[Rfam]
The family of this 83-nucleotide sequence from Eubacterium sp. CAG:248 is "S10-Clostridia ribosomal protein leader".
RNA sequence: UGAUAGCGUAGAAGCGUGAGGUUGCUGCUCAUAAGAGCAGGUUUUCCGUGGAGCGAAUGUCAAGGCCGGUAAGAGACCGGCGA
Numbered sequence: 001u002g003a004u005a006g007c008g009u010a011g012a013a014g015c016g017u018g019a020g021g022u023u024g025c026u027g028c029u030c031a032u033a034a035g036a037g038c039a040g041g042u043u044u045u046c047c048g049u050g051g052a053g054c055g056a057a058u059g060u061c062a063a064g065g066c067c068g069g070u071a072a073g074a075g076a077c078c079g080g081c082g083a
Stems, first nucleotide, its partner, number of pairs: 014049003018046004025040005058082004064078002067075001
Source information: It is annotated as a cis-regulatory leader. The family's consensus secondary structure is taken from published work.